Source information: Shown here is a 317-nucleotide RNA from Dermatophagoides farinae, a member of the family "Nuclear RNase P". The family's RNA type in Rfam is ribozyme.
RNA sequence: ACAAUUUGUAGUCCGCACUAGAGGUAGAUCCAAGAUUUACCUUUGGGAAGGUCUGAGAAUGCCGAGCAUGUAAAUUUAUUUUACUGCUUCUGAAUCUUGGUGAUUCACUUCGUAAUUCGGAGUGCAAGUCGAGAGCAACAGUUAUGAAUACUUCCAUUUUAUUAUGCAGGAGAUGGUUUCCAUUUGGAUUCCUGAUGCUUUAUAAAUGGUUGUAUUCAGUGAAAUGAUUUGCGGCUAGCUAAUGAAUAACAGUACGAUGUGCGGAAUGGCUAAUUAAUGUGUUAGCCAUAACUGAAUUCAGACUACUCACGGGUUGU
Numbered sequence: 001a002c003a004a005u006u007u008g009u010a011g012u013c014c015g016c017a018c019u020a021g022a023g024g025u026a027g028a029u030c031c032a033a034g035a036u037u038u039a040c041c042u043u044u045g046g047g048a049a050g051g052u053c054u055g056a057g058a059a060u061g062c063c064g065a066g067c068a069u070g071u072a073a074a075u076u077u078a079u080u081u082u083a084c085u086g087c088u089u090c091u092g093a094a095u096c097u098u099g100g101u102g103a104u105u106c107a108c109u110u111c112g113u114a115a116u117u118c119g120g121a122g123u124g125c126a127a128g129u130c131g132a133g134a135g136c137a138a139c140a141g142u143u144a145u146g147a148a149u150a151c152u153u154c155c156a157u158u159u160u161a162u163u164a165u166g167c168a169g170g171a172g173a174u175g176g177u178u179u180c181c182a183u184u185u186g187g188a189u190u191c192c193u194g195a196u197g198c199u200u201u202a203u204a205a206a207u208g209g210u211u212g213u214a215u216u217c218a219g220u221g222a223a224a225u226g227a228u229u230u231g232c233g234g235c236u237a238g239c240u241a242a243u244g245a246a247u248a249a250c251a252g253u254a255c256g257a258u259g260u261g262c263g264g265a266a267u268g269g270c271u272a273a274u275u276a277a278u279g280u281g282u283u284a285g286c287c288a289u290a291a292c293u294g295a296a297u298u299c300a301g302a303c304u305a306c307u308c309a310c311g312g313g314u315u316g317u
Base pairs, nucleotide, nucleotide: 001317002316003315004314007311008310009309012265013264014263015262016261017260018259020044021043022042023041024040025039026038027037028036029035030034053301054300055299056298057297061235062234063233092106093105094104095103096102107123108122109121110120111119112118124232125231126230127229128228129227130226145218146217147216148215149214150213266289267288268287269286270285271284272283273282274281